RNA sequence: CCAGAUGUCUUGCCGUCUGAGUCUACGCAGCAGUGCGAAUCGGGCAACCGGUUGGUGCCAAGCGAUGCGGACAAUGAACCUCCUCUUGAAAAAGAAGAUGCUCAAUCGUGAGAGGAGCAUAAACAGCAAGUAUCAUGUGGUUGGACAG
Numbered sequence: 001c002c003a004g005a006u007g008u009c010u011u012g013c014c015g016u017c018u019g020a021g022u023c024u025a026c027g028c029a030g031c032a033g034u035g036c037g038a039a040u041c042g043g044g045c046a047a048c049c050g051g052u053u054g055g056u057g058c059c060a061a062g063c064g065a066u067g068c069g070g071a072c073a074a075u076g077a078a079c080c081u082c083c084u085c086u087u088g089a090a091a092a093a094g095a096a097g098a099u100g101c102u103c104a105a106u107c108g109u110g111a112g113a114g115g116a117g118c119a120u121a122a123a124c125a126g127c128a129a130g131u132a133u134c135a136u137g138u139g140g141u142u143g144g145a146c147a148g
Stems, first nucleotide, its partner, number of pairs: 002019006027068003031064001033058004038053006081098002084095003099119004106113002123141002126138003
Dot-bracket structure: .((((((......)))))).......(((.(.((((.((((((....)))))).)))).....).)))............((.(((......))).))((((...((....))..))))...((.(((.......))).)).......